[Rfam]
RNA: Small nucleolar RNA SNORD72
Organism: Oryzias latipes
RNA sequence: AGCUCACCAAUGAUGCCAAUUUAAAUGUCUGAACCAAUGAAUUCAUCGUGAUUCAACUUUUAUUUACUCUGAGGUGAGCU
Numbered sequence: 001a002g003c004u005c006a007c008c009a010a011u012g013a014u015g016c017c018a019a020u021u022u023a024a025a026u027g028u029c030u031g032a033a034c035c036a037a038u039g040a041a042u043u044c045a046u047c048g049u050g051a052u053u054c055a056a057c058u059u060u061u062a063u064u065u066a067c068u069c070u071g072a073g074g075u076g077a078g079c080u
Base pairs, nucleotide, nucleotide: 002079003078004077005076006075007074008073